Shown here is a 115-nucleotide RNA from Solimicrobium silvestre, a member of the family "TPP riboswitch aptamer (THI element)". Gene Ontology term of the family: thiamine pyrophosphate binding. It scores 58 bits against the family's covariance model.

[Rfam]
RNA sequence: UUACACUGCUAGGGGUCCUUCCUCAGACAAAUCAAGCUCUAUGUCUGCGGCAGGUGAGAAAUACCCUUGACCUGAUCUGGAUAAUGCCAGCGUAGGGAAGCACAAGUGCCCGGCU
Number, nucleotide and partner (000 for none) at each position: 001u000002u000003a000004c000005a000006c000007u102008g101009c100010u099011a067012g066013g065014g064015g000016u061017c054018c053019u052020u000021c050022c000023u000024c000025a000026g000027a000028c000029a000030a000031a000032u000033c000034a000035a000036g000037c000038u000039c000040u000041a000042u000043g000044u000045c000046u000047g000048c000049g000050g021051c000052a019053g018054g017055u000056g000057a000058g000059a000060a000061a016062u000063a000064c014065c013066c012067u011068u000069g000070a000071c096072c095073u094074g093075a000076u000077c090078u089079g088080g087081a000082u000083a000084a000085u000086g000087c080088c079089a078090g077091c000092g000093u074094a073095g072096g071097g000098a000099a010100g009101c008102a007103c000104a000105a000106g000107u000108g000109c000110c000111c000112g000113g000114c000115u000